[Rfam]
RNA sequence: AUCCAAGUGCAAGGGCUUUACGCGUAUCAGUGAGGAUUCGUCCGAGAUCGUGUUUUUGCUAGUUGAAAACUAUACUAUGACCACUCCUAGUUGGCUUCGGCUGGCUAGGGAAUUUUGGGAACACUUUUUUCCUUGGACGGGAAGU
Numbered sequence: 001a002u003c004c005a006a007g008u009g010c011a012a013g014g015g016c017u018u019u020a021c022g023c024g025u026a027u028c029a030g031u032g033a034g035g036a037u038u039c040g041u042c043c044g045a046g047a048u049c050g051u052g053u054u055u056u057u058g059c060u061a062g063u064u065g066a067a068a069a070c071u072a073u074a075c076u077a078u079g080a081c082c083a084c085u086c087c088u089a090g091u092u093g094g095c096u097u098c099g100g101c102u103g104g105c106u107a108g109g110g111a112a113u114u115u116u117g118g119g120a121a122c123a124c125u126u127u128u129u130u131c132c133u134u135g136g137a138c139g140g141g142a143a144g145u
Stems, first nucleotide, its partner, number of pairs: 020053005026048003034043003085110011123145007
This 145-nucleotide RNA sequence from Colletotrichum orbiculare belongs to the Rfam family "U4 spliceosomal RNA". The source organism's lineage runs through Eukaryota, Fungi, leotiomyceta, Sordariomycetes and Colletotrichum orbiculare. The literature on the family includes a 2017 paper in Cell by Bertram et al., "Cryo-EM Structure of a Pre-catalytic Human Spliceosome Primed for Activation". The family's RNA type in Rfam is spliceosomal small nuclear RNA. A search with the family's covariance model found it, with a score of 101 bits. Rfam's curators write: U4 small nuclear RNA (U4 snRNA) is a component of the major U2-dependent spliceosome.